A member of the RNA family "Small nucleolar RNA SNORD89" from Ictidomys tridecemlineatus, 112 nucleotides long. The base pairs follow the family's consensus structure, which was predicted with RNAalifold. The sequence is in the family's curated seed alignment. The organism belongs to Ictidomys, within Eukaryota. About the family: snoRNA HBII-289 belongs to the family of C/D snoRNAs. It is the human orthologue of the mouse MBII-289 and has no identified RNA target. Rfam 15.1 lists 642 matches to the family in 573 species. On this family, see Huttenhofer et al., EMBO J 2001: "RNomics: an experimental approach that identifies 201 candidates for novel, small, non-messenger RNAs in mouse". The family's RNA type in Rfam is C/D-box small nucleolar RNA.

RNA sequence: ACUGAGGAAUGAUGACAAGAAAAGGCCGAAUUGCAGUGUCUCCCUUAGCAGUUUGCUCUCUGGGUGCACAAUGACAAAAUCACCUGAAGCGACCUACUGGUCUGACCUCAGU
Numbered sequence: 001a002c003u004g005a006g007g008a009a010u011g012a013u014g015a016c017a018a019g020a021a022a023a024g025g026c027c028g029a030a031u032u033g034c035a036g037u038g039u040c041u042c043c044c045u046u047a048g049c050a051g052u053u054u055g056c057u058c059u060c061u062g063g064g065u066g067c068a069c070a071a072u073g074a075c076a077a078a079a080u081c082a083c084c085u086g087a088a089g090c091g092a093c094c095u096a097c098u099g100g101u102c103u104g105a106c107c108u109c110a111g112u
Stems, first nucleotide, its partner, number of pairs: 001112007014102003025034002035098004041092002043089001045087004051069002054066005073080001